[Rfam]
RNA sequence: GUCGCCGCGAGGCGGGGUGGGGAGGAAGCUCAAGGCGAAAUCGCAGGGCGACGAACAGAAACCGGAUAUGAGGCGUGAUGCAUUCGGGGCGAGCGGGCACGUGACCGCCAAGCCCUCCAUCUGCAAACCCGGGUGCAAUGCCGGGAUGGGUGCAUUUUGUAAAUCCGGCGUCUAUGCGAGGAAGGAUUCGUGU
Numbered sequence: 001g002u003c004g005c006c007g008c009g010a011g012g013c014g015g016g017g018u019g020g021g022g023a024g025g026a027a028g029c030u031c032a033a034g035g036c037g038a039a040a041u042c043g044c045a046g047g048g049c050g051a052c053g054a055a056c057a058g059a060a061a062c063c064g065g066a067u068a069u070g071a072g073g074c075g076u077g078a079u080g081c082a083u084u085c086g087g088g089g090c091g092a093g094c095g096g097g098c099a100c101g102u103g104a105c106c107g108c109c110a111a112g113c114c115c116u117c118c119a120u121c122u123g124c125a126a127a128c129c130c131g132g133g134u135g136c137a138a139u140g141c142c143g144g145g146a147u148g149g150g151u152g153c154a155u156u157u158u159g160u161a162a163a164u165c166c167g168g169c170g171u172c173u174a175u176g177c178g179a180g181g182a183a184g185g186a187u188u189c190g191u192g193u
Stems, first nucleotide, its partner, number of pairs: 002015005028193002031190001036185001041179005046173005062168006073160003077156007087115004093108004
Shown here is a 193-nucleotide sequence from Ideonella livida, a member of the family "Group II catalytic intron D1-D4-3". Gene Ontology term of the family: Group II intron splicing. Group II introns are found in rRNA, tRNA and mRNA of organelles in fungi, plants and protists, and also in mRNA in bacteria. Lineage of the source: Bacteria > Pseudomonadati > Pseudomonadota > Sphaerotilaceae > Ideonella. The match comes from Rfam's covariance-model search (115 bits). The base pairs follow the family's consensus structure.